RNA sequence: GACCUAAACCAGUGGCUCCGGCUGCUGGUAUGGUCAAAAGUCCGGUCAAGGCCAGAAAACCCGUCGUGGGUUCUUGCCUUGACCGGUCAUGCAGGGAAACUUGCAUGAGUGGCUUCGGCCACU
Numbered sequence: 001g002a003c004c005u006a007a008a009c010c011a012g013u014g015g016c017u018c019c020g021g022c023u024g025c026u027g028g029u030a031u032g033g034u035c036a037a038a039a040g041u042c043c044g045g046u047c048a049a050g051g052c053c054a055g056a057a058a059a060c061c062c063g064u065c066g067u068g069g070g071u072u073c074u075u076g077c078c079u080u081g082a083c084c085g086g087u088c089a090u091g092c093a094g095g096g097a098a099a100c101u102u103g104c105a106u107g108a109g110u111g112g113c114u115u116c117g118g119c120c121a122c123u
Stems, first nucleotide, its partner, number of pairs: 001035004009028007042086011055073002059071004088107008108123006
Record summary:
The record is a 123-nucleotide RNA, which matches "LOOT RNA" in Rfam. Pairs were carried over by alignment from the consensus structure, which is taken from published work. It is annotated as a small RNA.